[Rfam]
Nucleotides: 150
Stems, first nucleotide, its partner, number of pairs: 012118004017047003021043001023042005049088004054082003058078003061074002090113003093109003097105002142147001
Number, partner (000 for none) and nucleotide at each position: 001000a002000u003000a004000c005000u006000u007000a008000c009000c010000u011000g012118g013117a014116u015115g016000u017047g018046g019045u020000a021043a022000a023042u024041g025040g026039u027038u028000g029000a030000u031000c032000a033000u034000g035000a036000a037000g038027g039026a040025c041024c042023a043021u044000g045019g046018c047017c048000u049088a050087g051086g052085g053000a054082g055081u056080g057000a058078c059077c060076u061074u062073c063000a064000u065000u066000g067000c068000a069000c070000u071000u072000a073062g074061g075000a076060a077059g078058g079000g080056u081055g082054c083000u084000a085052u086051c087050c088049u089000a090113a091112g092111g093109u094108c095107u096000a097105c098104c099000c100000a101000a102000g103000u104098g105097g106000u107095g108094g109093a110000a111092c112091c113090u114000a115015c116014a117013u118012u119000a120000u121000a122000a123000u124000u125000u126000g127000u128000a129000g130000u131000u132000u133000c134000u135000u136000u137000u138000g139000a140000u141000u142147u143000c144000u145000c146000u147142a148000c149000a150000u